Shown here is a 187-nucleotide sequence from Chrysemys picta, a member of the family "U4 spliceosomal RNA". The family is grouped with related families in Rfam's "U4 clan". The base pairs follow the family's consensus structure, which is taken from published work. On this family, see Bertram et al., Cell 2017: "Cryo-EM Structure of a Pre-catalytic Human Spliceosome Primed for Activation". It is annotated as a spliceosomal small nuclear RNA.
RNA sequence: GGUUUAGUGCAGUGGCAGUAUCGUAGCCAAUGAGGUUAAUCCAAGGUGCAAUUAUUGCUAAUUGAAAACUUUUCCCUGAUUAUUUAUUGAUGGAGAAGUUCCACACAACCUGAAACCCUGUCCCUGCAUAAAUCAUUACAUCCCCUCUUUUGUAUUCUGUAUGUAAAUGUAUAAGACUACUUCAGUA
Numbered sequence: 001g002g003u004u005u006a007g008u009g010c011a012g013u014g015g016c017a018g019u020a021u022c023g024u025a026g027c028c029a030a031u032g033a034g035g036u037u038a039a040u041c042c043a044a045g046g047u048g049c050a051a052u053u054a055u056u057g058c059u060a061a062u063u064g065a066a067a068a069c070u071u072u073u074c075c076c077u078g079a080u081u082a083u084u085u086a087u088u089g090a091u092g093g094a095g096a097a098g099u100u101c102c103a104c105a106c107a108a109c110c111u112g113a114a115a116c117c118c119u120g121u122c123c124c125u126g127c128a129u130a131a132a133u134c135a136u137u138a139c140a141u142c143c144c145c146u147c148u149u150u151u152g153u154a155u156u157c158u159g160u161a162u163g164u165a166a167a168u169g170u171a172u173a174a175g176a177c178u179a180c181u182u183c184a185g186u187a
Stems, first nucleotide, its partner, number of pairs: 020052002023049002026047003034042002085165003088161002092157003178187003